Overview:
The record is an 85-nucleotide RNA sequence from Collichthys lucidus, which matches "Small nucleolar RNA SNORD100" in Rfam. The base pairs follow the family's consensus structure, which was predicted with RNAalifold. Rfam links the family to the GO terms RNA processing and nucleolus. By type it is a C/D-box small nucleolar RNA. A search with the family's covariance model found it, with a score of 76 bits.
[Rfam]
RNA sequence: UGUAUCGCUGAUGAUAAUUUGGCUCCCUCUACUGAGAUUUUAUGCGGAAGACUGCCACUGUUACCCAAUUUUUGUCUGAGAUACG
Numbered sequence: 001u002g003u004a005u006c007g008c009u010g011a012u013g014a015u016a017a018u019u020u021g022g023c024u025c026c027c028u029c030u031a032c033u034g035a036g037a038u039u040u041u042a043u044g045c046g047g048a049a050g051a052c053u054g055c056c057a058c059u060g061u062u063a064c065c066c067a068a069u070u071u072u073u074g075u076c077u078g079a080g081a082u083a084c085g
Base pairs, nucleotide, nucleotide: 001085002084003083004082005081006080